[Rfam]
RNA sequence: AGCAGAGUAAAAAUAUGAGCGUUAAGUGUUCUAAACACGGGGAGUUGGUUUAGAAACGAAAAGAUUUUCUUGCGGUUCAUAUUUUGCAUCCCGCUGUU
Number, nucleotide and partner (000 for none) at each position: 001a098002g097003c096004a095005g094006a000007g000008u000009a000010a085011a084012a083013a082014u081015a080016u079017g078018a077019g076020c074021g073022u072023u000024a000025a000026g057027u056028g000029u055030u054031c053032u052033a051034a050035a049036c048037a000038c000039g000040g091041g090042g089043a000044g087045u000046u000047g000048g036049u035050u034051u033052a032053g031054a030055a029056a027057c026058g000059a000060a000061a071062a070063g069064a068065u000066u000067u000068u064069c063070u062071u061072g022073c021074g020075g000076u019077u018078c017079a016080u015081a014082u013083u012084u011085u010086g000087c044088a000089u042090c041091c040092c000093g000094c005095u004096g003097u002098u001
Rfam assigns this 98-nucleotide RNA from Firmicutes bacterium CAG:308 to the family "THF (Tetrahydrofolate) riboswitch aptamer". NCBI's taxonomy places the organism under Bacteria, Bacillati, Bacillota. Tetrahydrofolate (THF) riboswitch was first reported for Ames et al. as an RNA motif in 5' untranslated (5'-UTR)regions of folate transport and biosynthesis genes in Firmicutes genomes. On this family, see Ames et al., Chem Biol 2010: "A eubacterial riboswitch class that senses the coenzyme tetrahydrofolate". Pairs were carried over by alignment from the consensus structure, which is taken from published work.